[Rfam]
RNA sequence: GGAGGCGUACGCGUCCUGGUGGGCGUCCCGGUCUUCAAAACCGGCGAGGCCGAGGAUCUCGGCCUGGCGGGUUCGAUUCCCGUUCGUCUCC
Dot-bracket structure: (((((((.(.((((((....)))))).(((((.......)))))..(((((.........)))))..((((.......))))).)))))))
The record is a 91-nucleotide RNA from Corynebacterium otitidis, which matches "Selenocysteine transfer RNA" in Rfam. Its Rfam clan is "tRNA clan". It scores 79 bits against the family's covariance model. The source organism's lineage runs through Bacteria, Bacillati, Actinomycetota, Corynebacterium and Corynebacterium otitidis. Rfam links the family to the GO term triplet codon-amino acid adaptor activity.